[Rfam]
RNA sequence: AAAGAGUCCCGCACGGCGAAGUGCCGGUGAACCGUGUCAGAUCUGGAAGGAAGCAGCACUAAGCCUGUUACUUCGGGUGUUGCGGAUCGGCUCUUUUCG
Numbered sequence: 001a002a003a004g005a006g007u008c009c010c011g012c013a014c015g016g017c018g019a020a021g022u023g024c025c026g027g028u029g030a031a032c033c034g035u036g037u038c039a040g041a042u043c044u045g046g047a048a049g050g051a052a053g054c055a056g057c058a059c060u061a062a063g064c065c066u067g068u069u070a071c072u073u074c075g076g077g078u079g080u081u082g083c084g085g086a087u088c089g090g091c092u093c094u095u096u097u098c099g
Stems, first nucleotide, its partner, number of pairs: 003094005009085005014077001017075005023068002026065003034059004042051003
RNA: Bacterial small signal recognition particle RNA